RNA sequence: GUCGAGAAGUACAAGUCAUGAUAACAUCUGGGUGUUGGGACAUUUCCUAAGCCCAUAUAAUCGGGCUCGUGGUUGGCUCUUCACUGGCUUGCCCGUUCCAAGCUAGGAGUUGGCCCAUGGAACUCAUGUGAAGACAUGUGGUUUCAUGGGCCUUAGAGUGGGAGGGAACGCGUGAGGCUGGUUUCACAGAGCAACGAUGACUCCCCUCUCUUAGCAGUGGAAGGAUAGCAGGCCGGUGCCACCAGGGCCCAAUAUGAAUAGAUGGGCUGUGGCUUAAUUGGACCAACACUUUU
Numbered sequence: 001g002u003c004g005a006g007a008a009g010u011a012c013a014a015g016u017c018a019u020g021a022u023a024a025c026a027u028c029u030g031g032g033u034g035u036u037g038g039g040a041c042a043u044u045u046c047c048u049a050a051g052c053c054c055a056u057a058u059a060a061u062c063g064g065g066c067u068c069g070u071g072g073u074u075g076g077c078u079c080u081u082c083a084c085u086g087g088c089u090u091g092c093c094c095g096u097u098c099c100a101a102g103c104u105a106g107g108a109g110u111u112g113g114c115c116c117a118u119g120g121a122a123c124u125c126a127u128g129u130g131a132a133g134a135c136a137u138g139u140g141g142u143u144u145c146a147u148g149g150g151c152c153u154u155a156g157a158g159u160g161g162g163a164g165g166g167a168a169c170g171c172g173u174g175a176g177g178c179u180g181g182u183u184u185c186a187c188a189g190a191g192c193a194a195c196g197a198u199g200a201c202u203c204c205c206c207u208c209u210c211u212u213a214g215c216a217g218u219g220g221a222a223g224g225a226u227a228g229c230a231g232g233c234c235g236g237u238g239c240c241a242c243c244a245g246g247g248c249c250c251a252a253u254a255u256g257a258a259u260a261g262a263u264g265g266g267c268u269g270u271g272g273c274u275u276a277a278u279u280g281g282a283c284c285a286a287c288a289c290u291u292u293u
Base pairs, nucleotide, nucleotide: 015022016021030291031290032289033288034287035286036285037284038283041280042279043277044276046272047271050268051267053265054264055263056262058260059259061257062256063250064249065248066247067246068245072242074241075240076239078238084236085235086234087233088232089231090230091229092228093224094223096222097221098220099219100218102215103214104213105212106211107210108209109208112152113151114150115149116148117147118146119145120144121143122142123141124140125138126137127136128135129134153158160205161204162203163202164201171196172195173194178189179188180187
The family of this 293-nucleotide RNA sequence from Tripterygium wilfordii is "Plant signal recognition particle RNA". The match comes from Rfam's covariance-model search (198 bits). The source organism's lineage runs through Eukaryota, eudicotyledons, rosids, Celastraceae and Tripterygium. Clan: SRP clan.